[Rfam]
RNA sequence: ACUUACCGAGCCGGAACAGAAAGGAAUUGGGUGUCGAGGACACCGAUGAACUUUUGGCUCUGUGGUGGUGAUGUUGUGUUUGCAAUUUGUCCGGUAUCCCGGAUAUGGUCAUUAUUUACUGUUUUCACUUCUGUACAUUAACCCUGUCUGUCCAUAGUGAUUUAUGUAGCACCGCCACUUUAGCGGUGCUUUUUUUU
Numbered sequence: 001a002c003u004u005a006c007c008g009a010g011c012c013g014g015a016a017c018a019g020a021a022a023g024g025a026a027u028u029g030g031g032u033g034u035c036g037a038g039g040a041c042a043c044c045g046a047u048g049a050a051c052u053u054u055u056g057g058c059u060c061u062g063u064g065g066u067g068g069u070g071a072u073g074u075u076g077u078g079u080u081u082g083c084a085a086u087u088u089g090u091c092c093g094g095u096a097u098c099c100c101g102g103a104u105a106u107g108g109u110c111a112u113u114a115u116u117u118a119c120u121g122u123u124u125u126c127a128c129u130u131c132u133g134u135a136c137a138u139u140a141a142c143c144c145u146g147u148c149u150g151u152c153c154a155u156a157g158u159g160a161u162u163u164a165u166g167u168a169g170c171a172c173c174g175c176c177a178c179u180u181u182a183g184c185g186g187u188g189c190u191u192u193u194u195u196u197u
Base pairs, nucleotide, nucleotide: 009059010058011057012056015055016054021053022052023051028046030044031043032042033041034040088105089104090103091102092101093100094099107120108119109118111116135167136166137165138164168190169189170188171187172186173185174184175183
GcvB RNA: a 197-nucleotide sequence from Serratia sp. DD3. The gcvB gene encodes a small untranslated RNA involved in expression of the dipeptide and oligopeptide transport systems in Escherichia coli. For this family Rfam cites "Temperature-responsive in vitro RNA structurome of Yersinia pseudotuberculosis" (Righetti et al., Proc Natl Acad Sci U S A, 2016). A search with the family's covariance model found it, with a score of 137 bits. Gene Ontology terms of the family: mRNA binding and regulation of gene expression. Taxonomically the source falls in Serratia (Bacteria, Gammaproteobacteria, Enterobacterales, Yersiniaceae).